[Rfam]
RNA: T-box leader
RNA sequence: AAUAGUGCAAUGAAGAGACUAAGUAGAAUAGAUUAAUUAUUUUACAGAGAAGAUGAGCCUUGGCUGUGAGCUCGUCGAAAAUAAUCCUAUUUGAAAACUAACUUGGAGCAGAAUUUAGUAGCAUUUUGUAUGUGAAAGUAUUCGGUUGACUACCUUAUAGUCAUCAAGAGGAUAUAUAUUUACUAUAUAUCAACUUGGGUGGAACCACGACAUAUAACUCGUCCCAAAU
Numbered sequence: 001a002a003u004a005g006u007g008c009a010a011u012g013a014a015g016a017g018a019c020u021a022a023g024u025a026g027a028a029u030a031g032a033u034u035a036a037u038u039a040u041u042u043u044a045c046a047g048a049g050a051a052g053a054u055g056a057g058c059c060u061u062g063g064c065u066g067u068g069a070g071c072u073c074g075u076c077g078a079a080a081a082u083a084a085u086c087c088u089a090u091u092u093g094a095a096a097a098c099u100a101a102c103u104u105g106g107a108g109c110a111g112a113a114u115u116u117a118g119u120a121g122c123a124u125u126u127u128g129u130a131u132g133u134g135a136a137a138g139u140a141u142u143c144g145g146u147u148g149a150c151u152a153c154c155u156u157a158u159a160g161u162c163a164u165c166a167a168g169a170g171g172a173u174a175u176a177u178a179u180u181u182a183c184u185a186u187a188u189a190u191c192a193a194c195u196u197g198g199g200u201g202g203a204a205c206c207a208c209g210a211c212a213u214a215u216a217a218c219u220c221g222u223c224c225c226a227a228a229u
Base pairs, nucleotide, nucleotide: 007109008108015104016103017102026092027091028090029089030088031087040081041080042079053075054074055073056072057071058070111143112142113141114140116138144154145153146152171191172190173189174188175187176186177185196226197225198224199223207222208221209220210219